RNA sequence: GGAGACUGACGUUGACGUCCUUCGGGAGACUGACAAAGGGGAGGAAAGUCCGGGCUCCAUAGAGCAGGGUGCCAGGUAACGCCUGGGGGGCGCAAGCCUACGACAAGUGCAACAGAGAGAAGACCGCCGAUGGCCUUGAUUCGCAAGAUGAGAGGAUCAGGUAAGGGUGAAAGGGUGCGGUAAGAGCGCACCGGACGACUGGCAACAGUUCGUAGCAGGGUAAACUCCACCCGGAGCAAGACCAAAUAGGCCUCCACAUAGCGUUGCUCGCGUUAGGAGGCGGGUAGGUUGCUUGAGCCAGUGAGCGAUUGCUGGCCUAGAGGAAUGGCUACCGCCGCGCAAGCGGAACAGAACCCGGCUUAUAUGUCGGCUCCACCC
Numbered sequence: 001g002g003a004g005a006c007u008g009a010c011g012u013u014g015a016c017g018u019c020c021u022u023c024g025g026g027a028g029a030c031u032g033a034c035a036a037a038g039g040g041g042a043g044g045a046a047a048g049u050c051c052g053g054g055c056u057c058c059a060u061a062g063a064g065c066a067g068g069g070u071g072c073c074a075g076g077u078a079a080c081g082c083c084u085g086g087g088g089g090g091c092g093c094a095a096g097c098c099u100a101c102g103a104c105a106a107g108u109g110c111a112a113c114a115g116a117g118a119g120a121a122g123a124c125c126g127c128c129g130a131u132g133g134c135c136u137u138g139a140u141u142c143g144c145a146a147g148a149u150g151a152g153a154g155g156a157u158c159a160g161g162u163a164a165g166g167g168u169g170a171a172a173g174g175g176u177g178c179g180g181u182a183a184g185a186g187c188g189c190a191c192c193g194g195a196c197g198a199c200u201g202g203c204a205a206c207a208g209u210u211c212g213u214a215g216c217a218g219g220g221u222a223a224a225c226u227c228c229a230c231c232c233g234g235a236g237c238a239a240g241a242c243c244a245a246a247u248a249g250g251c252c253u254c255c256a257c258a259u260a261g262c263g264u265u266g267c268u269c270g271c272g273u274u275a276g277g278a279g280g281c282g283g284g285u286a287g288g289u290u291g292c293u294u295g296a297g298c299c300a301g302u303g304a305g306c307g308a309u310u311g312c313u314g315g316c317c318u319a320g321a322g323g324a325a326u327g328g329c330u331a332c333c334g335c336c337g338c339g340c341a342a343g344c345g346g347a348a349c350a351g352a353a354c355c356c357g358g359c360u361u362a363u364a365u366g367u368c369g370g371c372u373c374c375a376c377c378c
Stems, first nucleotide, its partner, number of pairs: 001374004006369001007366002009363001011332002014329001016327001018041005025034001046361003050358005055236004062269004067232005072086005087101001088099004102227002107225002109221002124166002126162003131159003135155002174192006193216001195213004199208003240290004250281006260274005297316008

The family of this 378-nucleotide sequence from Vibrio vulnificus is "Bacterial RNase P class A".
The sequence is in the family's curated seed alignment.
By type it is a ribozyme.